[Rfam]
RNA: Glutamine-II riboswitch aptamer
Nucleotides: 055
Base pairs, nucleotide, nucleotide: 004046005045006044007043008042010021011020012019013018032055033054034053035052036051037050038049
Number, partner (000 for none) and nucleotide at each position: 001000g002000u003000c004046c005045g006044u007043u008042c009000a010021u011020c012019c013018u014000u015000a016000a017000c018013a019012g020011g021010a022000c023000g024000c025000a026000u027000g028000a029000u030000c031000a032055c033054c034053a035052a036051g037050g038049c039000a040000u041000g042008g043007a044006a045005c046004g047000g048000g049038g050037u051036c052035u053034u054033g055032g